[Rfam]
RNA sequence: GUAAACAGACGCGGGAGCUUGGGGCAACCAGGCUGAGAGGGCGACUACGGCUGUCGCCGACCGCAUGAACCUGUCCGGGUAAUGCCGGCGUAGGGAGCGUCAUGACGUCUGAC
Numbered sequence: 001g002u003a004a005a006c007a008g009a010c011g012c013g014g015g016a017g018c019u020u021g022g023g024g025c026a027a028c029c030a031g032g033c034u035g036a037g038a039g040g041g042c043g044a045c046u047a048c049g050g051c052u053g054u055c056g057c058c059g060a061c062c063g064c065a066u067g068a069a070c071c072u073g074u075c076c077g078g079g080u081a082a083u084g085c086c087g088g089c090g091u092a093g094g095g096a097g098c099g100u101c102a103u104g105a106c107g108u109c110u111g112a113c
Stems, first nucleotide, its partner, number of pairs: 007100001010097001011064004017033005040058005070094004075088004
RNA: TPP riboswitch aptamer (THI element)
Organism: Streptosporangium saharense